[Rfam]
RNA sequence: GACACUUGCCUUUUAGGCAUCCUCUCCCAAAACUUUUACGGGCCGCCCUUCGGGGCGGCCCUUUUUUUUCGCCCUC
Numbered sequence: 001g002a003c004a005c006u007u008g009c010c011u012u013u014u015a016g017g018c019a020u021c022c023u024c025u026c027c028c029a030a031a032a033c034u035u036u037u038a039c040g041g042g043c044c045g046c047c048c049u050u051c052g053g054g055g056c057g058g059c060c061c062u063u064u065u066u067u068u069u070c071g072c073c074c075u076c
Base pairs, nucleotide, nucleotide: 008018009017010016011015040061041060042059043058044057045056046055047054048053

Background:
This 76-nucleotide sequence from Sphingopyxis witflariensis belongs to the Rfam family "Makes More Granules Regulator RNA (mmgR)". Rfam classes the family as a small RNA.